Vault RNA: a 105-nucleotide RNA sequence from Cervus hanglu. For this family Rfam cites "Evolution of Vault RNAs" (Stadler et al., Mol Biol Evol, 2009). The organism belongs to Cervus hanglu, within Eukaryota. The family's RNA type in Rfam is non-coding RNA gene. Rfam's curators write: This family of RNAs are found as part of the enigmatic vault ribonucleoprotein complex. Pairs were carried over by alignment from the consensus structure, which is taken from published work.
RNA sequence: GGGCUGGCCGUAGGUCAGUGGUUUCUUCAACUACAGAGUGAUCAAAUUACCCAAUUACCCUCUCUGAGGCUGGUUUGAGACAUGAGGGCACUCUCCAGUCCUUCA
Numbered sequence: 001g002g003g004c005u006g007g008c009c010g011u012a013g014g015u016c017a018g019u020g021g022u023u024u025c026u027u028c029a030a031c032u033a034c035a036g037a038g039u040g041a042u043c044a045a046a047u048u049a050c051c052c053a054a055u056u057a058c059c060c061u062c063u064c065u066g067a068g069g070c071u072g073g074u075u076u077g078a079g080a081c082a083u084g085a086g087g088g089c090a091c092u093c094u095c096c097a098g099u100c101c102u103u104c105a
Stems, first nucleotide, its partner, number of pairs: 002100006013089001015087002019084002026079005